[Rfam]
RNA: terC RNA
RNA sequence: CAGCGGUACCGGGCCCCUCUGGCGACAGCAAUGUCGUGAUGUCGGACCGCAUCG
Numbered sequence: 001c002a003g004c005g006g007u008a009c010c011g012g013g014c015c016c017c018u019c020u021g022g023c024g025a026c027a028g029c030a031a032u033g034u035c036g037u038g039a040u041g042u043c044g045g046a047c048c049g050c051a052u053c054g
Stems, first nucleotide, its partner, number of pairs: 006048001009045004022037006